[Rfam]
RNA sequence: GCACGGGGCCGUGACUGGCGCGUCUGGAUGGGAAGAACCAUCGGGGAGCGGUCCUUCCUAGCGACGUGAAGCCGUGCGCCUGGGCUUUCGCG
Numbered sequence: 001g002c003a004c005g006g007g008g009c010c011g012u013g014a015c016u017g018g019c020g021c022g023u024c025u026g027g028a029u030g031g032g033a034a035g036a037a038c039c040a041u042c043g044g045g046g047a048g049c050g051g052u053c054c055u056u057c058c059u060a061g062c063g064a065c066g067u068g069a070a071g072c073c074g075u076g077c078g079c080c081u082g083g084g085c086u087u088u089c090g091c092g
Base pairs, nucleotide, nucleotide: 005055006054007053008052009051010050011049012048015045016044017080018079019078020077021076028041029040030039031038069087070086071085072084073083
RNA: ZMP/ZTP riboswitch aptamer (pfl RNA motif)
Organism: Streptomyces sp. MP131-18